[Rfam]
RNA sequence: ACUAAGCGAGUACUCCGAGCAAAAGUGUCUAACGGGCAACGCGCCCCAUGGCACUGCGCCUGAGCCGCCCCAUGCGGCUCACAGGGCGGCAGGGGAAACCCUGCCGCCUUCCGUGUUGAAAAGGAGCACAGGCAACGUACCG
Numbered sequence: 001a002c003u004a005a006g007c008g009a010g011u012a013c014u015c016c017g018a019g020c021a022a023a024a025g026u027g028u029c030u031a032a033c034g035g036g037c038a039a040c041g042c043g044c045c046c047c048a049u050g051g052c053a054c055u056g057c058g059c060c061u062g063a064g065c066c067g068c069c070c071c072a073u074g075c076g077g078c079u080c081a082c083a084g085g086g087c088g089g090c091a092g093g094g095g096a097a098a099c100c101c102u103g104c105c106g107c108c109u110u111c112c113g114u115g116u117u118g119a120a121a122a123g124g125a126g127c128a129c130a131g132g133c134a135a136c137g138u139a140c141c142g
Stems, first nucleotide, its partner, number of pairs: 006133001011128001013126004019059002024055006034046003061081008084109011110119002
The family of this 142-nucleotide RNA sequence from Mitsuokella sp. oral taxon 131 is "Molybdenum/Tungsten riboswitch aptamer (Moco RNA motif)". NCBI's taxonomy places the organism under Bacteria, Bacillati, Bacillota, Mitsuokella, Mitsuokella sp. oral taxon 131. It scores 71 bits against the family's covariance model.